[Rfam]
The record is a 93-nucleotide RNA from Spinacia oleracea, which matches "mir-395 microRNA precursor family" in Rfam. The base pairs follow the family's consensus structure, which was predicted with PFOLD. From the family's description: mir-395 was identified in both Arabidopsis thaliana and Oryza sativa computationally and was later experimentally verified. mir-395 is thought to target mRNAs coding for ATP sulphurylases. The mature sequence is excised from the 3' arm of the hairpin.

RNA sequence: GCAUCCUCUGGAGUUUCCUCGGAACACUUCAAUUGGGACAUGUAUGGCUUCCUGUUUCUCUACUGAAGUGUUUGGGGGAACUCUUGGUGGUGC
Dot-bracket structure: ....(.((..((((((((((.((((((((((.(.((......................)).).))))))))))))))))))))..)).)....